[Rfam]
This 45-nucleotide RNA sequence from Oceanobacillus halophilus belongs to the Rfam family "PreQ1 (pre queuosine) riboswitch aptamer".
The base pairs follow the family's consensus structure.
This family is a bacterial riboswitch that binds to the metabolite preQ1, an intermediate in the biosynthesis of the modified nucleoside queuosine from GTP. One example of this riboswitch is located in the leader of the Bacillus subtilis ykvJKLM (queCDEF) operon which encodes four genes necessary for queuosine production. PreQ1 binding to the riboswitch aptamer is thought to induce premature transcription termination within the leader to down-regulate expression of these genes.
RNA sequence: GUAGGAGAGGUUCUAGCGAUACCCUCUAUAAAAAACUAGGGAUAG
Dot-bracket structure: .....(((((.....[......))))).........]........